This 146-nucleotide sequence from Vibrio eleionomae belongs to the Rfam family "DABA-DC-AT RNA". By type it is a cis-regulatory element. The base pairs follow the family's consensus structure, which is taken from published work.
RNA sequence: ACAAUCUCGGACGUUGUUUCUGGGGGAUACGCGUAGUGACCAUCAGGCUGAUUGGGACACUGCGUAGGGUAGGUACUGAUAAAUCCUUUUAUUAGUAGACGGGAUACUCUUGCUGCGGAUACAGCAAACGAAUGGGAAACCCAACA
Dot-bracket structure: .....((((((.......))))))......((((((((.(((..........)))..))))))))........((((((((((....)))))))))).............(((((......)))))....................